[Rfam]
RNA sequence: UAUCCCAAUGAUGAUCAUGUUUAAAAAUUAAAGUAGUGGACUGAUAUCUAUUGAUGAUAUGUCGAUUCUGAGGGAUU
Numbered sequence: 001u002a003u004c005c006c007a008a009u010g011a012u013g014a015u016c017a018u019g020u021u022u023a024a025a026a027a028u029u030a031a032a033g034u035a036g037u038g039g040a041c042u043g044a045u046a047u048c049u050a051u052u053g054a055u056g057a058u059a060u061g062u063c064g065a066u067u068c069u070g071a072g073g074g075a076u077u
Base pairs, nucleotide, nucleotide: 002076003075004074005073006072